[Rfam]
RNA: Lysine riboswitch aptamer
Nucleotides: 213
Base pairs, nucleotide, nucleotide: 006208007207008206009205010204011203016080017079018078019077020076021075022074024072031064032063033062034061035060036059084131085130086129087128088127089126090125091124092123094121132158133157134156135155137154138153139152140151141150142149160198161197162196163195164194166192
Number, partner (000 for none) and nucleotide at each position: 001000c002000a003000a004000g005000c006208c007207a008206g009205a010204a011203g012000a013000g014000g015000c016080g017079c018078g019077u020076c021075g022074c023000c024072c025000a026000g027000g028000u029000a030000a031064a032063g033062u034061g035060u036059c037000u038000g039000a040000g041000g042000a043000g044000c045000c046000a047000u048000c049000a050000u051000c052000c053000g054000a055000u056000g057000a058000c059036g060035g061034c062033a063032c064031u065000g066000g067000a068000g069000g070000g071000g072024g073000a074022g075021c076020g077019a078018c079017g080016c081000c082000g083000a084131g085130g086129c087128g088127u089126g090125a091124u092123g093000a094121u095000a096000u097000c098000c099000a100000g101000g102000u103000u104000u105000a106000u107000c108000g109000g110000g111000u112000a113000u114000a115000a116000c117000g118000g119000c120000a121094a122000c123092c124091a125090u126089c127088a128087c129086g130085u131084c132158g133157g134156c135155u136000a137154c138153a139152g140151g141150g142149g143000c144000u145000g146000a147000a148000u149142c150141c151140c152139c153138u154137g155135a156134g157133u158132u159000g160198u161197c162196a163195c164194c165000g166192u167000g168000g169000g170000c171000c172000a173000c174000c175000u176000u177000a178000a179000u180000c181000a182000a183000g184000u185000g186000g187000u188000c189000a190000g191000c192166a193000a194164g195163g196162u197161g198160g199000a200000g201000c202000g203011c204010u205009u206008c207007u208006g209000g210000g211000u212000g213000u